Rfam assigns this 101-nucleotide RNA from Leucobacter chromiisoli to the family "TPP riboswitch aptamer (THI element)". Gene Ontology term of the family: thiamine pyrophosphate binding. Taxonomically the source falls in Leucobacter (Bacteria, Actinomycetes, Micrococcales, Microbacteriaceae).
RNA sequence: UCCAGUGACACGGGGUGCCGCUGCGCGCAGCAGCGGCUGAGAACACACCCGUCGAACCUGAUCUAGUUCGUACUAGCGAAGGGAUGUCGCAGUGAGCGAUC
Numbered sequence: 001u002c003c004a005g006u007g008a009c010a011c012g013g014g015g016u017g018c019c020g021c022u023g024c025g026c027g028c029a030g031c032a033g034c035g036g037c038u039g040a041g042a043a044c045a046c047a048c049c050c051g052u053c054g055a056a057c058c059u060g061a062u063c064u065a066g067u068u069c070g071u072a073c074u075a076g077c078g079a080a081g082g083g084a085u086g087u088c089g090c091a092g093u094g095a096g097c098g099a100u101c
Base pairs, nucleotide, nucleotide: 006089007088008087009086010085011051012050013049014048016045017037018036019035020034021033022032023031024030057082058081059080063076064075065074066073